DUF805 RNA: a 69-nucleotide RNA sequence from Raineya orbicola. The family's consensus secondary structure is taken from published work. The match comes from Rfam's covariance-model search (84 bits). NCBI's taxonomy places the organism under Bacteria, Pseudomonadati, Cytophagia, Raineyaceae, Raineya.

[Rfam]
RNA sequence: AAAAAGUGGAGUCCAGCGACCACUAUAAAAAACGGGGCGAAACCGAAAAGCCAAACGAGUAGGAACUAA
Numbered sequence: 001a002a003a004a005a006g007u008g009g010a011g012u013c014c015a016g017c018g019a020c021c022a023c024u025a026u027a028a029a030a031a032a033c034g035g036g037g038c039g040a041a042a043c044c045g046a047a048a049a050g051c052c053a054a055a056c057g058a059g060u061a062g063g064a065a066c067u068a069a
Stems, first nucleotide, its partner, number of pairs: 006023004036052003043063002